[Rfam]
RNA: Nuclear RNase P
RNA sequence: AUAAUUGUAGCUCCUACGAUUAAGAGACCUGUUUACAAAAUGGAAAAUUUUGCAAAAAAUUUUCAAACCUUUAUCAGGUGGGAAAUUCGGUGAAUUACAACAAACUUUUCAUUUUGUUUUGAGUAUAAGUUACCUACCCGUGAGGGAAAUUGGUGUAAACUAAUUUUACAAUAACUGCUCUGUCAUAAGAAAUCGUAACUAGAAGCUGACAGAAAUGUCAGCUUCUAGAUGGGAAAGGCAGAGGUUUUAAUCAGUGUAACGACUAUUAAAAAAUACUUGAAGCAGGAUCGGUGUUUGAUAGAGAUGGAAAGGGAAGGAUGCAUAUGCAUCUUGAUGUAUGGUGUUCUACCUUUGUUGUCUCUUCUUACGCUGUUAAAGAAAAACUUGUGUGACUUAUUUUGUCCUCUUUGUUAGUGGGAAACCUCUCUUGAGGUUCUAGUUUGCAGAGAUAGGAGAAGGUAAGGUCUGUUGAGUGCAAUCGUAGGAUACCUCUGUUAUGAACAGACUUCUGUCUUGACGUUAGUUCGAUUUGAUGAAAGUUUGUGAUUGCUCAGGUGAACCCGAUACCGAUUAUUACAGUUAU
Numbered sequence: 001a002u003a004a005u006u007g008u009a010g011c012u013c014c015u016a017c018g019a020u021u022a023a024g025a026g027a028c029c030u031g032u033u034u035a036c037a038a039a040a041u042g043g044a045a046a047a048u049u050u051u052g053c054a055a056a057a058a059a060u061u062u063u064c065a066a067a068c069c070u071u072u073a074u075c076a077g078g079u080g081g082g083a084a085a086u087u088c089g090g091u092g093a094a095u096u097a098c099a100a101c102a103a104a105c106u107u108u109u110c111a112u113u114u115u116g117u118u119u120u121g122a123g124u125a126u127a128a129g130u131u132a133c134c135u136a137c138c139c140g141u142g143a144g145g146g147a148a149a150u151u152g153g154u155g156u157a158a159a160c161u162a163a164u165u166u167u168a169c170a171a172u173a174a175c176u177g178c179u180c181u182g183u184c185a186u187a188a189g190a191a192a193u194c195g196u197a198a199c200u201a202g203a204a205g206c207u208g209a210c211a212g213a214a215a216u217g218u219c220a221g222c223u224u225c226u227a228g229a230u231g232g233g234a235a236a237g238g239c240a241g242a243g244g245u246u247u248u249a250a251u252c253a254g255u256g257u258a259a260c261g262a263c264u265a266u267u268a269a270a271a272a273a274u275a276c277u278u279g280a281a282g283c284a285g286g287a288u289c290g291g292u293g294u295u296u297g298a299u300a301g302a303g304a305u306g307g308a309a310a311g312g313g314a315a316g317g318a319u320g321c322a323u324a325u326g327c328a329u330c331u332u333g334a335u336g337u338a339u340g341g342u343g344u345u346c347u348a349c350c351u352u353u354g355u356u357g358u359c360u361c362u363u364c365u366u367a368c369g370c371u372g373u374u375a376a377a378g379a380a381a382a383a384c385u386u387g388u389g390u391g392a393c394u395u396a397u398u399u400u401g402u403c404c405u406c407u408u409u410g411u412u413a414g415u416g417g418g419a420a421a422c423c424u425c426u427c428u429u430g431a432g433g434u435u436c437u438a439g440u441u442u443g444c445a446g447a448g449a450u451a452g453g454a455g456a457a458g459g460u461a462a463g464g465u466c467u468g469u470u471g472a473g474u475g476c477a478a479u480c481g482u483a484g485g486a487u488a489c490c491u492c493u494g495u496u497a498u499g500a501a502c503a504g505a506c507u508u509c510u511g512u513c514u515u516g517a518c519g520u521u522a523g524u525u526c527g528a529u530u531u532g533a534u535g536a537a538a539g540u541u542u543g544u545g546a547u548u549g550c551u552c553a554g555g556u557g558a559a560c561c562c563g564a565u566a567c568c569g570a571u572u573a574u575u576a577c578a579g580u581u582a583u
Stems, first nucleotide, its partner, number of pairs: 001583004007577003012486007027079005043064008088569005099246003135148001137146003149164006178243007199228006487557005